[Rfam]
RNA sequence: UGGCGCGCCCAAUGUGGGACCCAAGAAUGGGGGACUUAGUGAGGGACACUGUUCAUGGGCCCAAAGUAGAAAAAGCAAAAGAAAAUAAAGGACCGAUGUGGAGCCUGCCACAACGCUGAACCGUAGUAAAUGAACAGCGAUUAUGGGACAAGAAAUUAGCCAGCAUAAGAUUUUUGAUGAAAAUUUAGUAAAACUUUUAAAGGCACAAGGAGUUAAGGUGAAUAUUGAACAAUUAUGUCAAUUCUUUGAUUUUAUAAAAGAGGUUUGCCCUU
Numbered sequence: 001u002g003g004c005g006c007g008c009c010c011a012a013u014g015u016g017g018g019a020c021c022c023a024a025g026a027a028u029g030g031g032g033g034a035c036u037u038a039g040u041g042a043g044g045g046a047c048a049c050u051g052u053u054c055a056u057g058g059g060c061c062c063a064a065a066g067u068a069g070a071a072a073a074a075g076c077a078a079a080a081g082a083a084a085a086u087a088a089a090g091g092a093c094c095g096a097u098g099u100g101g102a103g104c105c106u107g108c109c110a111c112a113a114c115g116c117u118g119a120a121c122c123g124u125a126g127u128a129a130a131u132g133a134a135c136a137g138c139g140a141u142u143a144u145g146g147g148a149c150a151a152g153a154a155a156u157u158a159g160c161c162a163g164c165a166u167a168a169g170a171u172u173u174u175u176g177a178u179g180a181a182a183a184u185u186u187a188g189u190a191a192a193a194c195u196u197u198u199a200a201a202g203g204c205a206c207a208a209g210g211a212g213u214u215a216a217g218g219u220g221a222a223u224a225u226u227g228a229a230c231a232a233u234u235a236u237g238u239c240a241a242u243u244c245u246u247u248g249a250u251u252u253u254a255u256a257a258a259a260g261a262g263g264u265u266u267g268c269c270c271u272u
Stems, first nucleotide, its partner, number of pairs: 008033003014028002037051004085124002094115001097112005131150002135147001138145002156199001158197001159195001206248008216234002219231002257272002260269001
Dot-bracket structure: .......(((...((...........))..)))...((((.......)))).................................((.......(..(((((......)))))..).......))......((..(..((....)).).)).....(.((...................................).).)......((((((((..((.((.........)).))......))))))))........((.(........).))